[Rfam]
RNA sequence: CUAAUCGAGUGACAACGAGAGAGAGCACGCAUGUACACAGUCAUUUACCUUGCAUGAAUGCCGACAAGCGUGCUCUCUCUCAUCGUCAGUCAAGG
Numbered sequence: 001c002u003a004a005u006c007g008a009g010u011g012a013c014a015a016c017g018a019g020a021g022a023g024a025g026c027a028c029g030c031a032u033g034u035a036c037a038c039a040g041u042c043a044u045u046u047a048c049c050u051u052g053c054a055u056g057a058a059u060g061c062c063g064a065c066a067a068g069c070g071u072g073c074u075c076u077c078u079c080u081c082a083u084c085g086u087c088a089g090u091c092a093a094g095g
Stems, first nucleotide, its partner, number of pairs: 010088004017081001020078002023075001025073006032066003
The family of this 95-nucleotide sequence from Tetracentron sinense is "MIR535 microRNA precursor family". Its family is annotated with miRNA-mediated post-transcriptional gene silencing and RISC complex in the Gene Ontology. The base pairs follow the family's consensus structure, which was predicted with RNAalifold. The family has 20 seed sequences and 544 matches in Rfam 15.1.